Rfam assigns this 63-nucleotide sequence to the family "Pestivirus 3' UTR SLI". It is one of the family's seed sequences.

[Rfam]
RNA sequence: AGCUGAGCAGGGUAAGAAGGGUACACUCCUAGGGGAGUUGACCAAUAAUCCUGCAAGGCCCCC
Numbered sequence: 001a002g003c004u005g006a007g008c009a010g011g012g013u014a015a016g017a018a019g020g021g022u023a024c025a026c027u028c029c030u031a032g033g034g035g036a037g038u039u040g041a042c043c044a045a046u047a048a049u050c051c052u053g054c055a056a057g058g059c060c061c062c063c
Base pairs, nucleotide, nucleotide: 002059003058004057007054008053009052010051011050012049013048019043020042025038026037027036028035029034
The pairing is the family consensus, mapped onto this sequence.